[Rfam]
RNA sequence: AUGCAUUCUUAAACCCUCUUGGUAGCCUGACUCUGUGCUUCCAGGAUAUGAGUGAAUGCUACAGCAACGCAGAGAGUCCAAAGGACUGCGCUUCUGUGGCUCGGUCUUAUUUCAAACCUGCGACAUCU
Numbered sequence: 001a002u003g004c005a006u007u008c009u010u011a012a013a014c015c016c017u018c019u020u021g022g023u024a025g026c027c028u029g030a031c032u033c034u035g036u037g038c039u040u041c042c043a044g045g046a047u048a049u050g051a052g053u054g055a056a057u058g059c060u061a062c063a064g065c066a067a068c069g070c071a072g073a074g075a076g077u078c079c080a081a082a083g084g085a086c087u088g089c090g091c092u093u094c095u096g097u098g099g100c101u102c103g104g105u106c107u108u109a110u111u112u113c114a115a116a117c118c119u120g121c122g123a124c125a126u127c128u
Stems, first nucleotide, its partner, number of pairs: 003059004008052004017046006024039003063128002068122005082108007090100002
A member of the RNA family "Small nucleolar RNA SNORA14" from Tupaia belangeri, 128 nucleotides long. The family's RNA type in Rfam is H/ACA-box small nucleolar RNA. ACA14 is a member of the H/ACA class of snoRNA that guide the sites of modification of uridines to pseudouridines.